[Rfam]
RNA sequence: GUUGAGGGGAAUGUUGUCUGGUCGGAGACCUAACACCGCGGAUCCAUGCGGCAUCGCAGCAUGGUGGAUGGUUUCGGACCAGGCUUCAUUCCCCCCAAC
Numbered sequence: 001g002u003u004g005a006g007g008g009g010a011a012u013g014u015u016g017u018c019u020g021g022u023c024g025g026a027g028a029c030c031u032a033a034c035a036c037c038g039c040g041g042a043u044c045c046a047u048g049c050g051g052c053a054u055c056g057c058a059g060c061a062u063g064g065u066g067g068a069u070g071g072u073u074u075c076g077g078a079c080c081a082g083g084c085u086u087c088a089u090u091c092c093c094c095c096c097a098a099c
Stems, first nucleotide, its partner, number of pairs: 001099004006094008016084006025075002
Dot-bracket structure: ((((.((((((((..((((((...((...............................................))...))))))..)))))))).))))
Notes
The family of this 99-nucleotide RNA from Setaria italica is "mir-166 microRNA precursor family". Rfam describes the family as follows. This family represents the plant microRNA (miRNA) precursor mir-166. Rfam links the family to the GO terms miRNA-mediated post-transcriptional gene silencing and RISC complex. Rfam 15.1 lists 2,599 matches to the family in 229 species. The family's consensus secondary structure was predicted with PFOLD. It scores 69 bits against the family's covariance model.